[Rfam]
RNA: BsrF
RNA sequence: GCGAUGAGCUAAUUGCAUAAGACGAAAAAUGAGCUUUUGCUCAACAUAUGAAUGUGGUCAUAUGGUUUUUCGCCGCAAUACGUCAGAGAGGCCGUUUAUACGGCCUCU
Number, nucleotide and partner (000 for none) at each position: 001g000002c000003g000004a000005u000006g000007a000008g000009c000010u000011a000012a000013u078014u077015g076016c075017a000018u000019a000020a000021g000022a000023c072024g071025a070026a069027a068028a067029a066030u065031g000032a000033g040034c039035u000036u000037u000038u000039g034040c033041u000042c000043a000044a000045c064046a063047u000048a061049u060050g059051a000052a000053u000054g000055u000056g000057g000058u000059c050060a049061u048062a000063u046064g045065g030066u029067u028068u027069u026070u025071c024072g023073c000074c000075g016076c015077a014078a013079u000080a000081c000082g000083u000084c000085a000086g000087a108088g107089a106090g105091g104092c103093c102094g101095u100096u000097u000098a000099u000100a095101c094102g093103g092104c091105c090106u089107c088108u087